[Rfam]
RNA sequence: UAUGAAAAUUAAGAAAGAAUCCAUAUAUGUCUGAUAUGAUGGUUCAGAUGUUUCUACGGAACACCGAUAAAGUUCCACUAUGGAUAAUCUUCUGGAAUGA
Numbered sequence: 001u002a003u004g005a006a007a008a009u010u011a012a013g014a015a016a017g018a019a020u021c022c023a024u025a026u027a028u029g030u031c032u033g034a035u036a037u038g039a040u041g042g043u044u045c046a047g048a049u050g051u052u053u054c055u056a057c058g059g060a061a062c063a064c065c066g067a068u069a070a071a072g073u074u075c076c077a078c079u080a081u082g083g084a085u086a087a088u089c090u091u092c093u094g095g096a097a098u099g100a
Base pairs, nucleotide, nucleotide: 019085020084021083022082023081024080025079029049030048031047032046033045034044058076059075060074061073062072
Notes: This 100-nucleotide RNA sequence from Clostridium sp. N3C belongs to the Rfam family "Purine riboswitch aptamer". Gene Ontology term of the family: purine nucleobase biosynthetic process. For this family Rfam cites "Riboswitches Control Fundamental Biochemical Pathways in Bacillus subtilis and Other Bacteria" (Mandal et al., Cell, 2003). The source organism's lineage runs through Bacteria, Bacillota, Eubacteriales, Clostridiaceae and Clostridium. The match comes from Rfam's covariance-model search (66 bits).